[Rfam]
The family of this 161-nucleotide sequence from Pseudomonas sp. Boi14 is "Manganese Mn2+ riboswitch aptamer (yybP-ykoY)". The match comes from Rfam's covariance-model search (47 bits). Rfam 15.1 lists 1,126 matches to the family in 1,062 species. Rfam's curators write: This RNA was originally discovered in E. coli during a large scale screen and was named SraF. The family was later found to exist upstream of related families of protein genes in many bacteria, including the the yybP and ykoK genes in B. subtilis.
RNA sequence: CCUCUUUGGGGAGUAACCUGCCACCGCGCCCUGCGGUGGCGCCCGUAUCAACAUUCUCGGCAACCUGCCGUGGUACGGGCACCGUUUCGGCUGGUGAGACCAUCGACAUACCUGCGCUGAAGUCGGGCGCGUGGGCAUGUCGUGGACUCAAGCCCGACCGG
Numbered sequence: 001c002c003u004c005u006u007u008g009g010g011g012a013g014u015a016a017c018c019u020g021c022c023a024c025c026g027c028g029c030c031c032u033g034c035g036g037u038g039g040c041g042c043c044c045g046u047a048u049c050a051a052c053a054u055u056c057u058c059g060g061c062a063a064c065c066u067g068c069c070g071u072g073g074u075a076c077g078g079g080c081a082c083c084g085u086u087u088c089g090g091c092u093g094g095u096g097a098g099a100c101c102a103u104c105g106a107c108a109u110a111c112c113u114g115c116g117c118u119g120a121a122g123u124c125g126g127g128c129g130c131g132u133g134g135g136c137a138u139g140u141c142g143u144g145g146a147c148u149c150a151a152g153c154c155c156g157a158c159c160g161g
Stems, first nucleotide, its partner, number of pairs: 021039005041080010058070005082161003086157002